This 144-nucleotide RNA from Paenibacillus donghaensis belongs to the Rfam family "Group II catalytic intron D1-D4-4". The pairing is the family consensus, mapped onto this sequence. Group II introns are found in rRNA, tRNA and mRNA of organelles in fungi, plants and protists, and also in mRNA in bacteria. Lineage of the source: Bacteria > Bacillati > Bacilli > Caryophanales > Paenibacillus. Its family is annotated with Group II intron splicing in the Gene Ontology. A reference for the family is Bonen and Vogel (2001), "The ins and outs of group II introns", Trends Genet. The match comes from Rfam's covariance-model search (66 bits).

RNA sequence: UAGUUGGAGAAAGUCCAACCAAAUGAGGGCCCACGCCACCUUUGUAGCUAGGAUGCUUGCGCAUGGCGAAAUCUGUGUGUAGAAGCGCACCGACAAAAGUGCUGGUCAGAGAGCGGGCGAGCUACAGCCCAGGCCGUAACAUCA
Numbered sequence: 001u002a003g004u005u006g007g008a009g010a011a012a013g014u015c016c017a018a019c020c021a022a023a024u025g026a027g028g029g030c031c032c033a034c035g036c037c038a039c040c041u042u043u044g045u046a047g048c049u050a051g052g053a054u055g056c057u058u059g060c061g062c063a064u065g066g067c068g069a070a071a072u073c074u075g076u077g078u079g080u081a082g083a084a085g086c087g088c089a090c091c092g093a094c095a096a097a098a099g100u101g102c103u104g105g106u107c108a109g110a111g112a113g114c115g116g117g118c119g120a121g122c123u124a125c126a127g128c129c130c131a132g133g134c135c136g137u138a139a140c141a142u143c144a
Stems, first nucleotide, its partner, number of pairs: 020044004052091001054089003057082006066073001099114002102111002121137002